[Rfam]
RNA sequence: UUAUGAGAAAGGCAAAUCUGGGUGAAAACCUUGAGGCGCAAAGCUUCCAGUCUAAGAGAUCCUGUAUUGGGAUCUUAUGAUAGCGGGGUUGCCAUA
Numbered sequence: 001u002u003a004u005g006a007g008a009a010a011g012g013c014a015a016a017u018c019u020g021g022g023u024g025a026a027a028a029c030c031u032u033g034a035g036g037c038g039c040a041a042a043g044c045u046u047c048c049a050g051u052c053u054a055a056g057a058g059a060u061c062c063u064g065u066a067u068u069g070g071g072a073u074c075u076u077a078u079g080a081u082a083g084c085g086g087g088g089u090u091g092c093c094a095u096a
Stems, first nucleotide, its partner, number of pairs: 012039002017034002020031001022029002042090004047086002050081003057075008